Record summary: mir-2060 microRNA precursor family: a 94-nucleotide RNA from Branchiostoma floridae. The family has 7 seed sequences and 3,696 matches in Rfam 15.1. Rfam links the family to the GO terms miRNA-mediated post-transcriptional gene silencing and RISC complex. Pairs were carried over by alignment from the consensus structure, which was predicted with RNAalifold.
[Rfam]
Nucleotides: 094
Base pairs, nucleotide, nucleotide: 004085005084007082008081009080010079018075019074020073022071023070024069026067027066028065029064030063031062032061034055036053037052038051039050041048
Number, partner (000 for none) and nucleotide at each position: 001000g002000u003000u004085u005084g006000a007082c008081u009080g010079u011000g012000u013000a014000u015000g016000g017000a018075u019074g020073g021000c022071g023070u024069u025000c026067a027066g028065c029064a030063c031062c032061a033000g034055g035000g036053a037052c038051a039050g040000g041048c042000u043000u044000g045000u046000u047000u048041g049000a050039u051038u052037g053036u054000g055034u056000a057000u058000g059000g060000a061032u062031g063030g064029u065028g066027u067026u068000c069024a070023g071022c072000a073020c074019c075018a076000a077000g078000g079010a080009c081008a082007g083000g084005u085004g086000a087000g088000u089000c090000u091000u092000u093000g094000u